The family of this 366-nucleotide RNA is "HOLDH RNA". Pairs were carried over by alignment from the consensus structure, which is taken from published work. Rfam describes the family as follows. Environmental (human tongue dorsum, human supragingival plaque). By type it is a small RNA.

Nucleotides: 366
Base pairs, nucleotide, nucleotide: 001068002067003066004065005064006063007062008061016056017055018054022051023050024049025048027044028043029042030041070134071133072132073131074130075129076128083124084123085122086121088097089096090095104118105117106116107115108114140171141170142169143168144167150161151160152159153158182244183243184242185241186240204225205224206223210221211220212219213218233316234315235314236313237312238311255302256301257300258299268296269295270294271293279292280291281290282289283288319351320350321349322348323347324346325345326344327343353366354365355364356363357362
Number, partner (000 for none) and nucleotide at each position: 001068a002067u003066a004065a005064u006063a007062u008061u009000u010000a011000u012000g013000a014000c015000u016056g017055a018054a019000u020000g021000u022051g023050c024049u025048g026000a027044g028043u029042c030041g031000g032000g033000a034000u035000a036000a037000u038000c039000u040000a041030c042029g043028g044027c045000a046000u047000c048025c049024g050023g051022c052000c053000c054018u055017u056016c057000a058000a059000g060000a061008g062007a063006u064005a065004u066003u067002a068001u069000c070134u071133u072132a073131c074130u075129g076128u077000g078000a079000a080000c081000u082000a083124g084123u085122c086121c087000u088097a089096g090095a091000g092000a093000a094000a095090u096089c097088u098000a099000a100000a101000u102000a103000a104118c105117c106116u107115c108114g109000a110000g111000a112000g113000a114108c115107g116106g117105g118104g119000u120000c121086g122085g123084a124083u125000g126000a127000a128076g129075c130074a131073g132072u133071a134070a135000u136000g137000a138000a139000a140171c141170u142169c143168c144167u145000a146000g147000a148000u149000g150161u151160g152159g153158g154000c155000a156000a157000g158153c159152c160151u161150a162000a163000c164000c165000g166000a167144a168143g169142g170141a171140g172000u173000c174000g175000a176000u177000c178000g179000a180000a181000a182244a183243c184242u185241c186240g187000u188000u189000g190000u191000u192000g193000a194000a195000g196000u197000a198000g199000c200000g201000u202000a203000a204225g205224c206223u207000c208000c209000c210221u211220g212219a213218u214000a215000a216000a217000a218213a219212u220211c221210a222000u223206a224205g225204u226000a227000a228000u229000a230000c231000g232000a233316g234315a235314g236313g237312u238311g239000g240186c241185g242184a243183g244182u245000a246000u247000a248000a249000a250000u251000a252000a253000a254000u255302u256301u257300c258299c259000u260000g261000u262000u263000a264000u265000g266000c267000a268296g269295u270294g271293g272000a273000u274000u275000g276000u277000a278000a279292u280291c281290g282289a283288u284000a285000u286000u287000a288283a289282u290281c291280g292279g293271c294270c295269a296268c297000a298000u299258g300257g301256g302255a303000a304000g305000a306000u307000g308000a309000a310000a311238c312237a313236u314235c315234u316233c317000u318000g319351g320350u321349c322348u323347u324346g325345u326344a327343g328000a329000g330000a331000u332000a333000g334000c335000a336000u337000a338000u339000u340000g341000a342000g343327c344326u345325a346324c347323a348322a349321g350320a351319u352000g353366a354365u355364a356363c357362c358000g359000a360000a361000a362357g363356g364355u365354a366353u